[Rfam]
RNA sequence: GGGCGGACCCCGCCGAACCGCCCGUCCUGAUGGCCGGGUGGACCGGGGACCCAUGUUCUCUGGGGUGAAUCCCGUCUGCGCUCCCGCAGGCUGACGGGUAGGGCCACGUUCCGGCCCGAACCCGUCAGCUGACCUGGUAGGCGGACCGAGGAACGGA
Number, nucleotide and partner (000 for none) at each position: 001g000002g000003g000004c000005g000006g000007a000008c000009c000010c000011c143012g142013c141014c140015g000016a000017a000018c041019c040020g039021c038022c037023c036024g035025u000026c000027c000028u000029g000030a000031u000032g000033g000034c000035c024036g023037g022038g021039u020040g019041g018042a138043c137044c136045g135046g134047g133048g000049a000050c000051c000052c062053a061054u000055g000056u000057u000058c000059u000060c000061u053062g052063g123064g122065g121066u000067g000068a000069a000070u000071c098072c097073c096074g095075u094076c093077u000078g000079c000080g000081c000082u000083c000084c000085c000086g000087c000088a000089g000090g000091c000092u000093g076094a075095c074096g073097g072098g071099u000100a000101g117102g116103g115104c114105c000106a000107c000108g000109u000110u000111c000112c000113g000114g104115c103116c102117c101118g000119a000120a000121c065122c064123c063124g000125u000126c000127a000128g000129c000130u000131g000132a000133c047134c046135u045136g044137g043138u042139a000140g014141g013142c012143g011144g000145a000146c000147c000148g000149a000150g000151g000152a000153a000154c000155g000156g000157a000
The family of this 157-nucleotide sequence from Blastococcus saxobsidens is "c-di-AMP riboswitch aptamer (ydaO/yuaA leader)". A search with the family's covariance model found it, with a score of 74 bits.